[Rfam]
RNA: Small nucleolar RNA SNORA27
RNA sequence: AUACCCCCUUUCACUUUGCCAAUGAGACUUAUGUCUUCAUUGGUCAUUCAAGUGGGGCAAAGGAAAUAUCCUUUUAAAACUCAUACAAACUGAGUGUUUGUUUUGUAACCUGUCAGAGGAAACAAAA
Numbered sequence: 001a002u003a004c005c006c007c008c009u010u011u012c013a014c015u016u017u018g019c020c021a022a023u024g025a026g027a028c029u030u031a032u033g034u035c036u037u038c039a040u041u042g043g044u045c046a047u048u049c050a051a052g053u054g055g056g057g058c059a060a061a062g063g064a065a066a067u068a069u070c071c072u073u074u075u076a077a078a079a080c081u082c083a084u085a086c087a088a089a090c091u092g093a094g095u096g097u098u099u100g101u102u103u104u105g106u107a108a109c110c111u112g113u114c115a116g117a118g119g120a121a122a123c124a125a126a127a
Stems, first nucleotide, its partner, number of pairs: 032059005040051004069120006082105001083103001085101006